[Rfam]
RNA: TPP riboswitch aptamer (THI element)
Organism: Mongoliitalea lutea
RNA sequence: AUGAAACUUUAGGGGUGCCUAUAAGGCUGAGAUCAAACCCUUUGAACCUGAUACGGGUCAUACCGGCGAAGGAAAAAGUUUAUUUCUAGGA
Numbered sequence: 001a002u003g004a005a006a007c008u009u010u011a012g013g014g015g016u017g018c019c020u021a022u023a024a025g026g027c028u029g030a031g032a033u034c035a036a037a038c039c040c041u042u043u044g045a046a047c048c049u050g051a052u053a054c055g056g057g058u059c060a061u062a063c064c065g066g067c068g069a070a071g072g073a074a075a076a077a078g079u080u081u082a083u084u085u086c087u088a089g090g091a
Stems, first nucleotide, its partner, number of pairs: 006079005011041004016035001017027004047072003054065003